[Rfam]
RNA sequence: GAUAAGGAGAUAGUGAUGGUGAUUACAAGCACAUAUCUUAAAUAAAUGUGUGGAAAAACAGUUUCUGAAUCUCCUCAAU
Numbered sequence: 001g002a003u004a005a006g007g008a009g010a011u012a013g014u015g016a017u018g019g020u021g022a023u024u025a026c027a028a029g030c031a032c033a034u035a036u037c038u039u040a041a042a043u044a045a046a047u048g049u050g051u052g053g054a055a056a057a058a059c060a061g062u063u064u065c066u067g068a069a070u071c072u073c074c075u076c077a078a079u
Stems, first nucleotide, its partner, number of pairs: 001079001003077001005075002008072004